Shown here is a 101-nucleotide RNA from Turicibacter sp. H121, a member of the family "SAM riboswitch aptamer (S box leader)".
NCBI's taxonomy places the organism under Bacteria, Bacillota, Erysipelotrichales, Turicibacteraceae, Turicibacter.

RNA sequence: CUCUUAUCACGAGAGGCGGAGGGACAGGCCCAAUGAUGCCCGGCAACCAAUCAGUCAUGAUACGGUGCCAAUUCCUGCAGACAUUGUCUGAAAGAUAAGGG
Numbered sequence: 001c002u003c004u005u006a007u008c009a010c011g012a013g014a015g016g017c018g019g020a021g022g023g024a025c026a027g028g029c030c031c032a033a034u035g036a037u038g039c040c041c042g043g044c045a046a047c048c049a050a051u052c053a054g055u056c057a058u059g060a061u062a063c064g065g066u067g068c069c070a071a072u073u074c075c076u077g078c079a080g081a082c083a084u085u086g087u088c089u090g091a092a093a094g095a096u097a098a099g100g101g
Stems, first nucleotide, its partner, number of pairs: 001101008013041001015040003021031003025077004042069004047065002050061004073093001078090005